[Rfam]
RNA sequence: GGCAAAUGAUGUCUGUUUCACGAUGGUCUUCAGAUGCCCACCCUGGGCAGUGCUGAGAAGGCCACUUGGCACAGCUGAUGCUGGAAA
Numbered sequence: 001g002g003c004a005a006a007u008g009a010u011g012u013c014u015g016u017u018u019c020a021c022g023a024u025g026g027u028c029u030u031c032a033g034a035u036g037c038c039c040a041c042c043c044u045g046g047g048c049a050g051u052g053c054u055g056a057g058a059a060g061g062c063c064a065c066u067u068g069g070c071a072c073a074g075c076u077g078a079u080g081c082u083g084g085a086a087a
Stems, first nucleotide, its partner, number of pairs: 001082004
RNA: Small nucleolar RNA SNORD35
Organism: Bos taurus